RNA sequence: UAAAAGAAGCCAAAAUCACUUUUUUUCUUUUAAGAAAAGUGAUUUUGGCUUCUUUUACUUU
Numbered sequence: 001u002a003a004a005a006g007a008a009g010c011c012a013a014a015a016u017c018a019c020u021u022u023u024u025u026u027c028u029u030u031u032a033a034g035a036a037a038a039g040u041g042a043u044u045u046u047g048g049c050u051u052c053u054u055u056u057a058c059u060u061u
Base pairs, nucleotide, nucleotide: 001057002056003055004054005053006052007051008050009049010048011047012046013045014044015043016042017041018040019039023038024037025036026035027034